[Rfam]
RNA sequence: UAGCCGUCGUUUCCUGUGACUCCCAGCCGUUCAGCCCUGGCACACUUCCCCGGUGCCAGGUCUGUAAUGGAUGGGGAUCAGGGGACACGAAGACUGUCAU
Numbered sequence: 001u002a003g004c005c006g007u008c009g010u011u012u013c014c015u016g017u018g019a020c021u022c023c024c025a026g027c028c029g030u031u032c033a034g035c036c037c038u039g040g041c042a043c044a045c046u047u048c049c050c051c052g053g054u055g056c057c058a059g060g061u062c063u064g065u066a067a068u069g070g071a072u073g074g075g076g077a078u079c080a081g082g083g084g085a086c087a088c089g090a091a092g093a094c095u096g097u098c099a100u
Stems, first nucleotide, its partner, number of pairs: 010087001012085004018079002021076005027070005032064003036060008
mraW RNA: a 100-nucleotide RNA sequence. The match comes from Rfam's covariance-model search (64 bits). The family's consensus secondary structure is taken from published work.